[Rfam]
RNA sequence: UCAUCAGAUGGGCUAAUCCUUACCAGUUCCUCCCUAUGGAGGGCAGAUUAGCAAAUGAUGAUUGGAGUUUGCAUCAUACGCAAUUACGCGUCUCUGCAUAAUCAGGACUUGUGACACCCUGAUUGCUCCUGAU
Numbered sequence: 001u002c003a004u005c006a007g008a009u010g011g012g013c014u015a016a017u018c019c020u021u022a023c024c025a026g027u028u029c030c031u032c033c034c035u036a037u038g039g040a041g042g043g044c045a046g047a048u049u050a051g052c053a054a055a056u057g058a059u060g061a062u063u064g065g066a067g068u069u070u071g072c073a074u075c076a077u078a079c080g081c082a083a084u085u086a087c088g089c090g091u092c093u094c095u096g097c098a099u100a101a102u103c104a105g106g107a108c109u110u111g112u113g114a115c116a117c118c119c120u121g122a123u124u125g126c127u128c129c130u131g132a133u
Stems, first nucleotide, its partner, number of pairs: 024046001026044001028043006076093001078091003099125008
This 133-nucleotide RNA sequence from Prolemur simus belongs to the Rfam family "U8 small nucleolar RNA". The family's RNA type in Rfam is C/D-box small nucleolar RNA. The source organism's lineage runs through Eukaryota, Metazoa, Boreoeutheria, Euarchontoglires and Prolemur.